This 50-nucleotide RNA belongs to the Rfam family "Exoribonuclease-resistant RNA (xrRNA) plant-infecting virus (class 3)". Rfam's curators write: Exoribonuclease-resistant RNA (xrRNA) plant-infecting virus (class 3) is a ncRNA that was reported in Plant viruses. The family's consensus secondary structure is taken from published work. On this family, see Gezelle et al., bioRxiv [Preprint] 2024: "The pseudoknot structure of a viral RNA reveals a conserved mechanism for programmed exoribonuclease resistance".
RNA sequence: UAAUUAGCCAGGAAAACGUUGUUGCAAUCGCUGGAAAUUUUAGUCAACUA
Numbered sequence: 001u002a003a004u005u006a007g008c009c010a011g012g013a014a015a016a017c018g019u020u021g022u023u024g025c026a027a028u029c030g031c032u033g034g035a036a037a038u039u040u041u042a043g044u045c046a047a048c049u050a
Stems, first nucleotide, its partner, number of pairs: 002038001004036001008034002011032001012029002018048004